[Rfam]
RNA sequence: GGAACUAGCUCAGCAUACACGAGUUGCAAGCAUGGGAAGUUCAAGCCUCGU
Numbered sequence: 001g002g003a004a005c006u007a008g009c010u011c012a013g014c015a016u017a018c019a020c021g022a023g024u025u026g027c028a029a030g031c032a033u034g035g036g037a038a039g040u041u042c043a044a045g046c047c048u049c050g051u
Stems, first nucleotide, its partner, number of pairs: 002042004009036002012033001013031002019051005